[Rfam]
RNA sequence: AUAGCCAGAAGUUUGGCGAUAUAAGGGAUUAAGGGCAGGUUCAGGAUCAGAAGCACAAGAUUGCCUAUGAACAUGGACAUGAUGACGGCCCAAAAAAUCUGUGGAUCAUCAACCAUUAGGCGUGGACC
Numbered sequence: 001a002u003a004g005c006c007a008g009a010a011g012u013u014u015g016g017c018g019a020u021a022u023a024a025g026g027g028a029u030u031a032a033g034g035g036c037a038g039g040u041u042c043a044g045g046a047u048c049a050g051a052a053g054c055a056c057a058a059g060a061u062u063g064c065c066u067a068u069g070a071a072c073a074u075g076g077a078c079a080u081g082a083u084g085a086c087g088g089c090c091c092a093a094a095a096a097a098u099c100u101g102u103g104g105a106u107c108a109u110c111a112a113c114c115a116u117u118a119g120g121c122g123u124g125g126a127c128c
Base pairs, nucleotide, nucleotide: 004017005016006015007014008013026128027127029125030124031123034121036119038114039113040112043109045107046106047105048104050102052100053099061093062092063091066088072084073083074082
The record is a 128-nucleotide RNA from Lentibacter algarum, which matches "Ruegeria cis8 sRNA" in Rfam. The match comes from Rfam's covariance-model search (100 bits). It is annotated as a small RNA. The organism belongs to Lentibacter, within Bacteria. Pairs were carried over by alignment from the consensus structure, which was predicted with RNAfold.